Rfam assigns this 112-nucleotide RNA sequence from Coptis chinensis to the family "Small nucleolar RNA Z107/R87". The literature on the family includes a 2001 paper in J Mol Biol by Barneche et al., "Identification of 66 box C/D snoRNAs in Arabidopsis thaliana: extensive gene duplications generated multiple isoforms predicting new ribosomal RNA 2'-O-methylation sites". The match comes from Rfam's covariance-model search (94 bits).
[Rfam]
RNA sequence: GAUCGUGAUGAUGACCACAUAAAAUUCAAGCUCAACAGACCGGAUUGCAGUUCUCUUUCUUUCAACAAAGAUUGAGAUUUGCGUGUCGACAACCCCGCUGAACUGAGCGAUC
Numbered sequence: 001g002a003u004c005g006u007g008a009u010g011a012u013g014a015c016c017a018c019a020u021a022a023a024a025u026u027c028a029a030g031c032u033c034a035a036c037a038g039a040c041c042g043g044a045u046u047g048c049a050g051u052u053c054u055c056u057u058u059c060u061u062u063c064a065a066c067a068a069a070g071a072u073u074g075a076g077a078u079u080u081g082c083g084u085g086u087c088g089a090c091a092a093c094c095c096c097g098c099u100g101a102a103c104u105g106a107g108c109g110a111u112c
Stems, first nucleotide, its partner, number of pairs: 001112006
Notes:
Rfam 15.1 lists 783 matches to the family in 221 species. Lineage of the source: Eukaryota > Viridiplantae > Spermatophyta > Ranunculaceae > Coptis.